[Rfam]
RNA sequence: AAAACAUCCGGGACAGUGUUCCCGGUGUUUC
Numbered sequence: 001a002a003a004a005c006a007u008c009c010g011g012g013a014c015a016g017u018g019u020u021c022c023c024g025g026u027g028u029u030u031c
Base pairs, nucleotide, nucleotide: 002030003029004028005027006026007025009024010023011022012021013020014018
A member of the RNA family "Iron response element II" from Aegilops tauschii, 31 nucleotides long. Rfam's curators write: IRE, TFRC, SLC40A1, SDHB, SLC11A2, CDC42BPA, ACO2, ALAS2_H.SAPIENS, CDC14A, EPAS1, ALAS2, qoxD, Hao1, NDUFS1, transferrin, Aconitate. It scores 31 bits against the family's covariance model. Its family is annotated with response to iron ion in the Gene Ontology. The source organism's lineage runs through Eukaryota, Streptophyta, Spermatophyta, Triticeae and Aegilops tauschii. Rfam 15.1 lists 5,197 matches to the family in 722 species. The literature on the family includes a 2005 paper in Nature by Wingert et al., "Deficiency of glutaredoxin 5 reveals Fe-S clusters are required for vertebrate haem synthesis".